A member of the RNA family "Small nucleolar RNA Z278" from Jatropha curcas, 118 nucleotides long. Rfam describes the family as follows. snoZ278 is a C/D box small nucleolar RNA. Its methylation guide targets have not been reported. On this family, see Chen et al., Nucleic Acids Res 2003: "The high diversity of snoRNAs in plants: identification and comparative study of 120 snoRNA genes from Oryza sativa". It scores 62 bits against the family's covariance model.
RNA sequence: GCCAAUGAUGAAUUAAUCCACCCUCAUGUAGGUGUAGUGAAGCCAAGUUCCUGCUUGUCAGGAAGAACCUACUUGGUGGUAGCUACAUUACAAUGACAUUAAUGGAUUUUGCUGAGGC
Numbered sequence: 001g002c003c004a005a006u007g008a009u010g011a012a013u014u015a016a017u018c019c020a021c022c023c024u025c026a027u028g029u030a031g032g033u034g035u036a037g038u039g040a041a042g043c044c045a046a047g048u049u050c051c052u053g054c055u056u057g058u059c060a061g062g063a064a065g066a067a068c069c070u071a072c073u074u075g076g077u078g079g080u081a082g083c084u085a086c087a088u089u090a091c092a093a094u095g096a097c098a099u100u101a102a103u104g105g106a107u108u109u110u111g112c113u114g115a116g117g118c
Base pairs, nucleotide, nucleotide: 001118002117003116049063050062051061052060053059